[Rfam]
The family of this 73-nucleotide RNA from Ornithorhynchus anatinus is "mir-1421 microRNA precursor family". The family has 53 seed sequences and 110 matches in Rfam 15.1. The family's consensus secondary structure was predicted with RNAalifold.
RNA sequence: CGGUGUCAGCAGGUCACGUGUGGUGCAGCGUGAUAGUGGAAUAUGCUGCAUCAGGUGUGGCACAGCACACAGC
Number, nucleotide and partner (000 for none) at each position: 001c000002g000003g070004u069005g068006u067007c000008a000009g000010c000011a000012g063013g061014u060015c059016a058017c057018g056019u055020g000021u053022g000023g051024u050025g049026c048027a047028g000029c000030g000031u000032g000033a000034u000035a000036g000037u000038g000039g000040a000041a000042u000043a000044u000045g000046c000047u027048g026049c025050a024051u023052c000053a021054g000055g019056u018057g017058u016059g015060g014061c013062a000063c012064a000065g000066c000067a006068c005069a004070c003071a000072g000073c000